Annotation:
Rfam assigns this 191-nucleotide RNA from Paenibacillus dendrobii to the family "6S / SsrS RNA". Taxonomically the source falls in Paenibacillus (Bacteria, Bacillati, Bacillota, Paenibacillaceae). The family's RNA type in Rfam is non-coding RNA gene. The match comes from Rfam's covariance-model search (86 bits). Pairs were carried over by alignment from the consensus structure, which is taken from published work.
[Rfam]
RNA sequence: UACAUCCUGCGAUGUUCGCCACGGUUAAUCGUUGUUUUGAACCAAUGAUAAUGUCUAGGGAGAUCAUUACGAAGCGUAGCUGAAAAGCCCUGUCUAUAUGACAUGGGGACUUCAAAAGCGCAUCCGAGGUCACCCACCUGCCAAAGCAGGUUCAGAAGACAAUUUAACCGGACGGCAUAGGCGGGUUUUUA
Dot-bracket structure: .(.(.(((((.((((.((..............(.((.((((((..............(((.((((.(...((.((((.....((...(((((...........)))))..)).....)))).)).).)))).))).............)))))).)).).............))))))..))))).).)..
Numbered sequence: 001u002a003c004a005u006c007c008u009g010c011g012a013u014g015u016u017c018g019c020c021a022c023g024g025u026u027a028a029u030c031g032u033u034g035u036u037u038u039g040a041a042c043c044a045a046u047g048a049u050a051a052u053g054u055c056u057a058g059g060g061a062g063a064u065c066a067u068u069a070c071g072a073a074g075c076g077u078a079g080c081u082g083a084a085a086a087g088c089c090c091u092g093u094c095u096a097u098a099u100g101a102c103a104u105g106g107g108g109a110c111u112u113c114a115a116a117a118g119c120g121c122a123u124c125c126g127a128g129g130u131c132a133c134c135c136a137c138c139u140g141c142c143a144a145a146g147c148a149g150g151u152u153c154a155g156a157a158g159a160c161a162a163u164u165u166a167a168c169c170g171g172a173c174g175g176c177a178u179a180g181g182c183g184g185g186u187u188u189u190u191a
Stems, first nucleotide, its partner, number of pairs: 002189001004187001006185005012178004017174002033159001035157002038154006058135003062131004067126001071124002074121004083112002088108005